About this RNA
Shown here is a 103-nucleotide RNA sequence from Rhodococcus oxybenzonivorans, a member of the family "mraW RNA". The base pairs follow the family's consensus structure, which is taken from published work. It scores 64 bits against the family's covariance model. The family's RNA type in Rfam is cis-regulatory element.
RNA sequence: GCACGCGAAUGCGGCGAGGCCUCUGUCCGACGGAACCCUGACGCACUUCCCCAGCGCCAGGUUUUCAUUUCGGGCAGGGACCUCGAAGCAUUCGCACCGGCGA
Numbered sequence: 001g002c003a004c005g006c007g008a009a010u011g012c013g014g015c016g017a018g019g020c021c022u023c024u025g026u027c028c029g030a031c032g033g034a035a036c037c038c039u040g041a042c043g044c045a046c047u048u049c050c051c052c053a054g055c056g057c058c059a060g061g062u063u064u065u066c067a068u069u070u071c072g073g074g075c076a077g078g079g080a081c082c083u084c085g086a087a088g089c090a091u092u093c094g095c096a097c098c099g100g101c102g103a
Stems, first nucleotide, its partner, number of pairs: 010090003015085002018082002021079010032066004037061004042056003

Lineage of the source: Bacteria > Bacillati > Actinomycetes > Nocardiaceae > Rhodococcus.